RNA sequence: AGGCGAAAAGGGCAAACCUGCCGAAAGGCGGGGACGCAAAGCUUGGGAGUCUAAAUCAUGCUCGGCGGAAUCCGCCGCGGGUGAUAUGACAGUCCGGCCGCAUGG
Numbered sequence: 001a002g003g004c005g006a007a008a009a010g011g012g013c014a015a016a017c018c019u020g021c022c023g024a025a026a027g028g029c030g031g032g033g034a035c036g037c038a039a040a041g042c043u044u045g046g047g048a049g050u051c052u053a054a055a056u057c058a059u060g061c062u063c064g065g066c067g068g069a070a071u072c073c074g075c076c077g078c079g080g081g082u083g084a085u086a087u088g089a090c091a092g093u094c095c096g097g098c099c100g101c102a103u104g105g
Base pairs, nucleotide, nucleotide: 012037013036017032018031019030020029021028022027041098042097043096046095047094048093049090050089051088056084057083058082059081
Background
The record is a 105-nucleotide sequence from Papillibacter cinnamivorans, which matches "c-di-GMP-I riboswitch aptamer" in Rfam. It scores 61 bits against the family's covariance model. Pairs were carried over by alignment from the consensus structure, which is taken from published work. NCBI's taxonomy places the organism under Bacteria, Bacillati, Eubacteriales, Oscillospiraceae, Papillibacter cinnamivorans. GEMM was predicted in a large-scale screen for bacterial structured RNA regulatory elements. Genes associated with GEMM are involved in a diverse array of functions, including chemotaxis regulation, signal transduction, secretion and chitin.